[Rfam]
RNA sequence: GGUUGCAACAUCCCCGUGGGUUGGGUGAGGACGGAAGUGCGUCUUCACAGUGAAUCCACUGCAACC
Numbered sequence: 001g002g003u004u005g006c007a008a009c010a011u012c013c014c015c016g017u018g019g020g021u022u023g024g025g026u027g028a029g030g031a032c033g034g035a036a037g038u039g040c041g042u043c044u045u046c047a048c049a050g051u052g053a054a055u056c057c058a059c060u061g062c063a064a065c066c
Stems, first nucleotide, its partner, number of pairs: 001066007013052001014050001016059007023051001025048008

The record is a 66-nucleotide sequence, which matches "nadA riboswitch" in Rfam. The base pairs follow the family's consensus structure, which is taken from published work. The literature on the family includes a 2020 paper in RNA by Huang et al., "Structure and ligand binding of the ADP-binding domain of the NAD(+) riboswitch".